[Rfam]
RNA sequence: ACGGGACGAACCUCAACGGCAUGGAGCGGGGGACCCACGUUCCUCGGCGCGUCCGCGCGCCUCGGGGUGAAGCCGCCACACCACGCGGCCGGGCACCUCAGCCCGAACCCGACAGCUGACCUCGCAGGCGUGGAGGGUUCAUGU
Number, nucleotide and partner (000 for none) at each position: 001a000002c000003g000004g000005g129006a000007c127008g000009a000010a000011c000012c024013u023014c000015a000016a000017c000018g000019g000020c000021a000022u000023g013024g012025a000026g125027c124028g123029g122030g121031g120032g000033a000034c000035c000036c064037a000038c000039g000040u000041u000042c000043c000044u000045c000046g000047g000048c000049g000050c000051g000052u000053c000054c000055g000056c000057g000058c000059g000060c000061c000062u000063c000064g036065g110066g109067g108068u000069g000070a000071a000072g000073c088074c087075g086076c085077c000078a000079c000080a000081c000082c000083a000084c000085g076086c075087g074088g073089c000090c000091g104092g103093g102094c101095a000096c000097c000098u000099c000100a000101g094102c093103c092104c091105g000106a000107a000108c067109c066110c065111g000112a000113c000114a000115g000116c000117u000118g000119a000120c031121c030122u029123c028124g027125c026126a000127g007128g000129c005130g000131u000132g000133g000134a000135g000136g000137g000138u000139u000140c000141a000142u000143g000144u000